[Rfam]
RNA sequence: GGUGGACUUCUCACUUUAAAGGCUAAUUGGCUAAGGGUUCAAGGGCUUGCGGACCAAAACUGGUAUCAUUGCAAGGUUCGAAACUUAAUAAAUACCCUAGCGCUUAAAGACACUCACCUCCCGCAUAAACAAGCCUCGGGUUAGUAUUUUUGGGGGUUUUGAGCGUCGGAUGGAGCAGGGACUGGAGAUGGUUUGUCACCC
Numbered sequence: 001g002g003u004g005g006a007c008u009u010c011u012c013a014c015u016u017u018a019a020a021g022g023c024u025a026a027u028u029g030g031c032u033a034a035g036g037g038u039u040c041a042a043g044g045g046c047u048u049g050c051g052g053a054c055c056a057a058a059a060c061u062g063g064u065a066u067c068a069u070u071g072c073a074a075g076g077u078u079c080g081a082a083a084c085u086u087a088a089u090a091a092a093u094a095c096c097c098u099a100g101c102g103c104u105u106a107a108a109g110a111c112a113c114u115c116a117c118c119u120c121c122c123g124c125a126u127a128a129a130c131a132a133g134c135c136u137c138g139g140g141u142u143a144g145u146a147u148u149u150u151u152g153g154g155g156g157u158u159u160u161g162a163g164c165g166u167c168g169g170a171u172g173g174a175g176c177a178g179g180g181a182c183u184g185g186a187g188a189u190g191g192u193u194u195g196u197c198a199c200c201c
Stems, first nucleotide, its partner, number of pairs: 016036002020032002023029001037046003060075002063072003095180004102176004109167003113163004120156003126152004134144001
Source information:
carA ncRNA motif: a 201-nucleotide sequence from Polynucleobacter asymbioticus. The family's consensus secondary structure is taken from published work. carA ncRNA motif was reported as a Strong Riboswitch Candidate CarA ncRNA motif was located upstream of carA gene which codes for the small subunit of carbamoyl phosphate synthase, which is an enzyme that catalyses the first committed step in pyrimidine and arginine biosynthesis.